[Rfam]
RNA sequence: UCAAAAUCAUACGACUGGCGGAAGUGGAGUUUACCACAAGGGAGUAUGAUUUUAAAGGUUGCCGACCGCCUGGGCAUUAUUA
Numbered sequence: 001u002c003a004a005a006a007u008c009a010u011a012c013g014a015c016u017g018g019c020g021g022a023a024g025u026g027g028a029g030u031u032u033a034c035c036a037c038a039a040g041g042g043a044g045u046a047u048g049a050u051u052u053u054a055a056a057g058g059u060u061g062c063c064g065a066c067c068g069c070c071u072g073g074g075c076a077u078u079a080u081u082a
Stems, first nucleotide, its partner, number of pairs: 003053010015041002017070005024037004060076004
Shown here is an 82-nucleotide sequence from Acetivibrio saccincola, a member of the family "ZMP/ZTP riboswitch aptamer (pfl RNA motif)". The source organism's lineage runs through Bacteria, Bacillati, Acetivibrionales, Acetivibrionaceae and Acetivibrio.